[Rfam]
RNA sequence: CGUAGAAAAGGGCAAGUUAGUUGAAAGGCUAAUACGCAAAGCUACGGCCUAAGUUCCUUGUGUUAAAGGAAUAUGGUGGCAGGGUUACCUAC
Numbered sequence: 001c002g003u004a005g006a007a008a009a010g011g012g013c014a015a016g017u018u019a020g021u022u023g024a025a026a027g028g029c030u031a032a033u034a035c036g037c038a039a040a041g042c043u044a045c046g047g048c049c050u051a052a053g054u055u056c057c058u059u060g061u062g063u064u065a066a067a068g069g070a071a072u073a074u075g076g077u078g079g080c081a082g083g084g085u086u087a088c089c090u091a092c
Base pairs, nucleotide, nucleotide: 012037013036017032018031019030020029021028022027040086041085042084043083045082046080047077048076049075054071055070056069057068058067059066
RNA: c-di-GMP-I riboswitch aptamer
Organism: Candidatus Magnetomorum sp. HK-1